[Rfam]
RNA sequence: UAAAAUAUCACCAGAUCCUUGCAUUCUAUCGAUAAUUGUCUCUGCUGUGAAAAUAGUUCUGAGUAGUGCAGUAUUGCUUAUAAGGGUUUUGGUGUUUGGGAAGA
Numbered sequence: 001u002a003a004a005a006u007a008u009c010a011c012c013a014g015a016u017c018c019u020u021g022c023a024u025u026c027u028a029u030c031g032a033u034a035a036u037u038g039u040c041u042c043u044g045c046u047g048u049g050a051a052a053a054u055a056g057u058u059c060u061g062a063g064u065a066g067u068g069c070a071g072u073a074u075u076g077c078u079u080a081u082a083a084g085g086g087u088u089u090u091g092g093u094g095u096u097u098g099g100g101a102a103g104a
Stems, first nucleotide, its partner, number of pairs: 021089001023087004027082003030076005036071004042066005
RNA: mir-454 microRNA precursor family
Organism: Carlito syrichta